[Rfam]
RNA sequence: UGGCUAUAAAAUAACUUGAUUCAUAGCCACUUUGAGUUACGAUAAUUACUAUGUUAAUUUAUUGAGAUUAUAGUAACUUCAUACUAAGUGGUUUACUAUAAUAUUAUGGUAAAUAUCUCUAUGUGCUAUAGUAACCCAACUAUCGUAAAUAUGUAUUGACAUUAUCGUAAAUUAGUAUAUAAAAUUAUCAUAAAUGAAGGUGGCUCUGAAAUAACUUAUUUUAUUUCGA
Numbered sequence: 001u002g003g004c005u006a007u008a009a010a011a012u013a014a015c016u017u018g019a020u021u022c023a024u025a026g027c028c029a030c031u032u033u034g035a036g037u038u039a040c041g042a043u044a045a046u047u048a049c050u051a052u053g054u055u056a057a058u059u060u061a062u063u064g065a066g067a068u069u070a071u072a073g074u075a076a077c078u079u080c081a082u083a084c085u086a087a088g089u090g091g092u093u094u095a096c097u098a099u100a101a102u103a104u105u106a107u108g109g110u111a112a113a114u115a116u117c118u119c120u121a122u123g124u125g126c127u128a129u130a131g132u133a134a135c136c137c138a139a140c141u142a143u144c145g146u147a148a149a150u151a152u153g154u155a156u157u158g159a160c161a162u163u164a165u166c167g168u169a170a171a172u173u174a175g176u177a178u179a180u181a182a183a184a185u186u187a188u189c190a191u192a193a194a195u196g197a198a199g200g201u202g203g204c205u206c207u208g209a210a211a212u213a214a215c216u217u218a219u220u221u222u223a224u225u226u227c228g229a
Stems, first nucleotide, its partner, number of pairs: 001229001003227001006224009016214003020210004025205009037193003041189007050179013066166003070162002075156001082147003088143006094133007102125003108118002